This 96-nucleotide RNA from Flavobacterium psychrophilum belongs to the Rfam family "Flavo-1 RNA".

[Rfam]
RNA sequence: AGCUAGCCCUGAUGGAAGUGGAAAUCCUUUAUACACUAAACAGGUUUUUAAAAACCUGUUUAGUGUAUAAAGAUUGUAACGACAGCAGGAAUAUGG
Numbered sequence: 001a002g003c004u005a006g007c008c009c010u011g012a013u014g015g016a017a018g019u020g021g022a023a024a025u026c027c028u029u030u031a032u033a034c035a036c037u038a039a040a041c042a043g044g045u046u047u048u049u050a051a052a053a054a055c056c057u058g059u060u061u062a063g064u065g066u067a068u069a070a071a072g073a074u075u076g077u078a079a080c081g082a083c084a085g086c087a088g089g090a091a092u093a094u095g096g
Stems, first nucleotide, its partner, number of pairs: 009088003013084002018080002023075004029070019
Dot-bracket structure: ........(((.((...((...((((..(((((((((((((((((((....))))))))))))))))))).))))...))..)).)))........

Overview
The source organism's lineage runs through Bacteria, Pseudomonadati, Flavobacteriia, Flavobacteriaceae and Flavobacterium psychrophilum. It is one of the family's seed sequences. The family has 201 seed sequences and 7,497 matches in Rfam 15.1.